[Rfam]
RNA sequence: AGUUAUCCGCCAAACGUCAAAAGCGGCGGGCGUUGCGAGAUGCGACCUCGUAGAAAAGCGUA
Numbered sequence: 001a002g003u004u005a006u007c008c009g010c011c012a013a014a015c016g017u018c019a020a021a022a023g024c025g026g027c028g029g030g031c032g033u034u035g036c037g038a039g040a041u042g043c044g045a046c047c048u049c050g051u052a053g054a055a056a057a058g059c060g061u062a
Stems, first nucleotide, its partner, number of pairs: 002015003008028004036050004
RNA: GP20-b RNA